The family of this 101-nucleotide RNA from Cricetibacter osteomyelitidis is "Aggregatibacter sRNA 22". The family's RNA type in Rfam is small RNA. The base pairs follow the family's consensus structure, which was predicted with RNAfold. A search with the family's covariance model found it, with a score of 76 bits. The family has 7 seed sequences and 101 matches in Rfam 15.1.
Nucleotides: 101
Stems, first nucleotide, its partner, number of pairs: 010028008031047007048061005065085008089098002
Number, partner (000 for none) and nucleotide at each position: 001000g002000a003000g004000c005000g006000g007000u008000c009000a010028c011027a012026a013025a014024a015023a016022a017021c018000a019000a020000c021017g022016u023015u024014u025013u026012u027011u028010g029000a030000g031047c032046g033045u034044u035043g036042g037041c038000u039000c040000a041037g042036c043035c044034a045033a046032c047031g048061g049060c050059u051058c052057c053000g054000g055000u056000a057052g058051g059050g060049g061048c062000g063000a064000g065085u066084a067083a068082u069081c070080c071079g072078c073000c074000g075000u076000u077000a078072g079071c080070g081069g082068a083067u084066u085065a086000g087000g088000a089098g090097u091000a092000a093000u094000a095000u096000a097090a098089u099000g100000a101000a